[Rfam]
RNA sequence: CGCGCCACGCAGUAAUGCGUGGCGUGACCGGAUAGAAGUCAGCAGAGGCCGUAGGAGCUGGCGGCCCUCAAGUGAAGAAGGGCGAAGGCAAAGGGC
Numbered sequence: 001c002g003c004g005c006c007a008c009g010c011a012g013u014a015a016u017g018c019g020u021g022g023c024g025u026g027a028c029c030g031g032a033u034a035g036a037a038g039u040c041a042g043c044a045g046a047g048g049c050c051g052u053a054g055g056a057g058c059u060g061g062c063g064g065c066c067c068u069c070a071a072g073u074g075a076a077g078a079a080g081g082g083c084g085a086a087g088g089c090a091a092a093g094g095g096c
Base pairs, nucleotide, nucleotide: 001026002025004023005022006021007020008019009018010017011016039046040045048096049095050094057089058088059087065082066081067080
Rfam assigns this 96-nucleotide RNA to the family "Group II catalytic intron D1-D4-1". On this family, see Bonen and Vogel, Trends Genet 2001: "The ins and outs of group II introns". The pairing is the family consensus, mapped onto this sequence.